[Rfam]
RNA sequence: UAACCUAUCCAGUGAUGGAUAACUGAACUGUUAGAAGUCAGCAGACGUCAUAGUAGCAUGAGAAACGCGUUAUCAUGUGAAGGAC
Numbered sequence: 001u002a003a004c005c006u007a008u009c010c011a012g013u014g015a016u017g018g019a020u021a022a023c024u025g026a027a028c029u030g031u032u033a034g035a036a037g038u039c040a041g042c043a044g045a046c047g048u049c050a051u052a053g054u055a056g057c058a059u060g061a062g063a064a065a066c067g068c069g070u071u072a073u074c075a076u077g078u079g080a081a082g083g084a085c
Stems, first nucleotide, its partner, number of pairs: 001025002006021006037046003047085003056078006
Description
This 85-nucleotide RNA from Caloramator mitchellensis belongs to the Rfam family "Group II catalytic intron D1-D4-1". The pairing is the family consensus, mapped onto this sequence. Rfam 15.1 lists 2,508 matches to the family in 1,144 species. A search with the family's covariance model found it, with a score of 72 bits. Group II introns are found in rRNA, tRNA and mRNA of organelles in fungi, plants and protists, and also in mRNA in bacteria.